[Rfam]
RNA sequence: UGACGUUGAAAGACAUGGGUAGUGAGACGAGAAUUGACAUCUGCGUAUCACUAUUCUGUUUUUCGCCGUUUG
Numbered sequence: 001u002g003a004c005g006u007u008g009a010a011a012g013a014c015a016u017g018g019g020u021a022g023u024g025a026g027a028c029g030a031g032a033a034u035u036g037a038c039a040u041c042u043g044c045g046u047a048u049c050a051c052u053a054u055u056c057u058g059u060u061u062u063u064c065g066c067c068g069u070u071u072g
Stems, first nucleotide, its partner, number of pairs: 008064008017056003021052005027046003
This 72-nucleotide RNA sequence from Caenorhabditis angaria belongs to the Rfam family "mir-71 microRNA precursor family". The base pairs follow the family's consensus structure, which was predicted with RNAalifold. Rfam links the family to the GO terms RISC complex and miRNA-mediated post-transcriptional gene silencing. The source organism's lineage runs through Eukaryota, Protostomia, Nematoda, Rhabditoidea and Caenorhabditis. It scores 62 bits against the family's covariance model. A reference for the family is Yu et al. (2008), "The silkworm (Bombyx mori) microRNAs and their expressions in multiple developmental stages", PLoS One.